[Rfam]
RNA sequence: GUGCUGUGAUGACCUCCUUAUUGGUUUCACUUUUUACUGAAUUUCUCUGAUGACACCUCUUGGCUGGCUGAGCAC
Numbered sequence: 001g002u003g004c005u006g007u008g009a010u011g012a013c014c015u016c017c018u019u020a021u022u023g024g025u026u027u028c029a030c031u032u033u034u035u036a037c038u039g040a041a042u043u044u045c046u047c048u049g050a051u052g053a054c055a056c057c058u059c060u061u062g063g064c065u066g067g068c069u070g071a072g073c074a075c
Base pairs, nucleotide, nucleotide: 001075002074003073004072
Rfam assigns this 75-nucleotide RNA sequence from Thamnophis sirtalis to the family "Small nucleolar RNA SNORD53/SNORD92". The family is grouped with related families in Rfam's "SNORD52 clan". The pairing is the family consensus, mapped onto this sequence. Rfam 15.1 lists 2,250 matches to the family in 671 species. For this family Rfam cites "Site-specific ribose methylation of preribosomal RNA: a novel function for small nucleolar RNAs" (Kiss-Laszlo et al., Cell, 1996).